[Rfam]
RNA: Small nucleolar RNA SNORA69
Organism: Caloenas nicobarica
RNA sequence: AAAGCAGGCUGCAAUUACAGUGCUUCAUUCCGUGGGAGUACUGCCAUUUUCCUGCUGAGAGCGACUCUGUUAACACCGUGUUUGGUUUCACCUAUGUGGUGGUGAAAUUGCUGGUUCUUAACAUGUACAAGU
Number, nucleotide and partner (000 for none) at each position: 001a000002a000003a056004g055005c054006a053007g052008g051009c000010u000011g000012c000013a000014a000015u000016u000017a000018c043019a042020g041021u040022g039023c038024u037025u036026c035027a000028u000029u000030c000031c000032g000033u000034g000035g026036g025037a024038g023039u022040a021041c020042u019043g018044c000045c000046a000047u000048u000049u000050u000051c008052c007053u006054g005055c004056u003057g000058a000059g000060a000061g000062c000063g000064a000065c000066u125067c000068u123069g122070u121071u120072a119073a118074c000075a116076c000077c000078g000079u000080g000081u000082u000083u110084g109085g108086u107087u106088u105089c104090a103091c102092c101093u000094a000095u000096g000097u000098g000099g000100u000101g092102g091103u090104g089105a088106a087107a086108u085109u084110g083111c000112u000113g000114g000115u000116u075117c000118u073119u072120a071121a070122c069123a068124u000125g066126u000127a000128c000129a000130a000131g000132u000